[Rfam]
RNA sequence: AGCCCCUUUAAAAUCAGUCCCGUGAGGCUGAGAAGGAAACGGAAAUUACAUUGGGAUAGCUAUAACUAUAUCUCUGUGUAAAAAUCUCUUUGUCCUCUCACUAGCGGUGGGAGGACUUUUUUCGU
Number, nucleotide and partner (000 for none) at each position: 001a000002g000003c000004c000005c036006c035007u034008u033009u032010a000011a000012a000013a000014u031015c030016a029017g028018u027019c026020c000021c000022g000023u000024g000025a000026g019027g018028c017029u016030g015031a014032g009033a008034a007035g006036g005037a000038a000039a000040c000041g000042g000043a000044a000045a000046u081047u080048a079049c000050a000051u000052u076053g075054g074055g073056a000057u000058a000059g069060c000061u000062a000063u000064a000065a000066c000067u000068a000069u059070a000071u000072c000073u055074c054075u053076g052077u000078g000079u048080a047081a046082a000083a000084a000085u000086c000087u000088c000089u000090u000091u000092g116093u115094c114095c113096u112097c111098u110099c109100a108101c107102u000103a000104g000105c000106g000107g101108u100109g099110g098111g097112a096113g095114g094115a093116c092117u000118u000119u000120u000121u000122u000123c000124g000125u000
RNA: PyrR binding site